[Rfam]
RNA sequence: UGGUUCUUGCUUCAACAGUGUUUGGAUAGAACUUA
Numbered sequence: 001u002g003g004u005u006c007u008u009g010c011u012u013c014a015a016c017a018g019u020g021u022u023u024g025g026a027u028a029g030a031a032c033u034u035a
Stems, first nucleotide, its partner, number of pairs: 002033006009027001011026005016020001
RNA: Iron response element I
Organism: Monodelphis domestica